[Rfam]
RNA sequence: GUUAUCUCUGAUGAUGAACUGGUGUCCUACAUCUUGUCGGGCCUUGAAGAAAAUUACAAUCCGGUGGUCUCGGCGGUUCUAGCCCGUGAAGAACCAGUAACGCCUGGGGCCCUGUAUGCUCAGCUUUUGAGCCAUGAAU
Dot-bracket structure: .((((........................................................................................((((......))))..........................))))..

The family of this 139-nucleotide RNA sequence from Zea mays is "Small nucleolar RNA Z247". Rfam links the family to the GO terms RNA processing and nucleolus. Rfam classes the family as a C/D-box small nucleolar RNA. Lineage of the source: Eukaryota > Viridiplantae > Petrosaviidae > Poales > Zea. A reference for the family is Chen et al. (2003), "The high diversity of snoRNAs in plants: identification and comparative study of 120 snoRNA genes from Oryza sativa", Nucleic Acids Res. The match comes from Rfam's covariance-model search (41 bits). The family's consensus secondary structure was predicted with PFOLD.